[Rfam]
RNA sequence: CGGUGUCAAUGAUGUCACAUUUACCUACAUUGUUUGAGUCGUGCUGAGAAAAAUUCCAAGUGCUGAGACACCU
Numbered sequence: 001c002g003g004u005g006u007c008a009a010u011g012a013u014g015u016c017a018c019a020u021u022u023a024c025c026u027a028c029a030u031u032g033u034u035u036g037a038g039u040c041g042u043g044c045u046g047a048g049a050a051a052a053a054u055u056c057c058a059a060g061u062g063c064u065g066a067g068a069c070a071c072c073u
Base pairs, nucleotide, nucleotide: 002072004070005069006068007067